[Rfam]
RNA sequence: UCUCUCAAAUAAAUAAAAUCUUUAAAAAUAAAUAAAUAAUUUUAAAAAGGUAGUUUUGUGGCUCUAUUGAAACAGAAGUUAUGUUUCCAUCACAUCAGGUUUAUGGCAGUGGUGACAAUGAGACUUGUAACAUUU
Numbered sequence: 001u002c003u004c005u006c007a008a009a010u011a012a013a014u015a016a017a018a019u020c021u022u023u024a025a026a027a028a029u030a031a032a033u034a035a036a037u038a039a040u041u042u043u044a045a046a047a048a049g050g051u052a053g054u055u056u057u058g059u060g061g062c063u064c065u066a067u068u069g070a071a072a073c074a075g076a077a078g079u080u081a082u083g084u085u086u087c088c089a090u091c092a093c094a095u096c097a098g099g100u101u102u103a104u105g106g107c108a109g110u111g112g113u114g115a116c117a118a119u120g121a122g123a124c125u126u127g128u129a130a131c132a133u134u135u
Stems, first nucleotide, its partner, number of pairs: 003061002006058003021045002024042003074128001076126003088114006
The family of this 135-nucleotide RNA from Neomonachus schauinslandi is "Small nucleolar RNA SNORA1".
Rfam 15.1 lists 1,282 matches to the family in 515 species.
About the family: ACA1 is a member of the H/ACA class of snoRNA that guide the sites of modification of uridines to pseudouridines.
Rfam classes the family as an H/ACA-box small nucleolar RNA.
Lineage of the source: Eukaryota > Amniota > Eutheria > Carnivora > Neomonachus.